A member of the RNA family "Nuclear RNase P" from Strigops habroptila, 334 nucleotides long.
RNA sequence: UCCGGGGGAAGCUCACCGCCGAGGCCACGCACUGGGUGCGCGUCACUCCGGCCCCGCCUCGGGGAAGGUCUGAGGGAAGGGCCGCCAGCGGCUCUAGCAGAGCCCCGCCCGCGACGGGCGGGUGAGCCACCAGAAAGGGGGGGCGCCGCGAGAGCCGGCCUGGGCAGGAGAAGCCGAGCAGGGUCCGGGGCGGGUUCUCCCCCCUCAAGGCACCCCCGGCGGAUGCUCAUGGCCCCGCGGUGCUUUGAAACAGACUCACGGCCGGCGAUUGCUGAGUCCAAUGGGUGAGGUGGGGCAUCGCCCUACAACCCAAUUCAGACUACUCUCCCCCGGA
Numbered sequence: 001u002c003c004g005g006g007g008g009a010a011g012c013u014c015a016c017c018g019c020c021g022a023g024g025c026c027a028c029g030c031a032c033u034g035g036g037u038g039c040g041c042g043u044c045a046c047u048c049c050g051g052c053c054c055c056g057c058c059u060c061g062g063g064g065a066a067g068g069u070c071u072g073a074g075g076g077a078a079g080g081g082c083c084g085c086c087a088g089c090g091g092c093u094c095u096a097g098c099a100g101a102g103c104c105c106c107g108c109c110c111g112c113g114a115c116g117g118g119c120g121g122g123u124g125a126g127c128c129a130c131c132a133g134a135a136a137g138g139g140g141g142g143g144c145g146c147c148g149c150g151a152g153a154g155c156c157g158g159c160c161u162g163g164g165c166a167g168g169a170g171a172a173g174c175c176g177a178g179c180a181g182g183g184u185c186c187g188g189g190g191c192g193g194g195u196u197c198u199c200c201c202c203c204c205u206c207a208a209g210g211c212a213c214c215c216c217c218g219g220c221g222g223a224u225g226c227u228c229a230u231g232g233c234c235c236c237g238c239g240g241u242g243c244u245u246u247g248a249a250a251c252a253g254a255c256u257c258a259c260g261g262c263c264g265g266c267g268a269u270u271g272c273u274g275a276g277u278c279c280a281a282u283g284g285g286u287g288a289g290g291u292g293g294g295g296c297a298u299c300g301c302c303c304u305a306c307a308a309c310c311c312a313a314u315u316c317a318g319a320c321u322a323c324u325c326u327c328c329c330c331c332g333g334a
Stems, first nucleotide, its partner, number of pairs: 001334004007328003012289006020061005034048005070318005080263004090104005105121006122259005128253001142244009290306007

Rfam's curators write: Ribonuclease P (RNase P) is a ubiquitous endoribonuclease, found in archaea, bacteria and eukarya as well as chloroplasts and mitochondria. Its best characterised activity is the generation of mature 5'-ends of tRNAs by cleaving the 5'-leader elements of precursor-tRNAs. Cellular RNase Ps are ribonucleoproteins. The organism belongs to Strigops, within Eukaryota.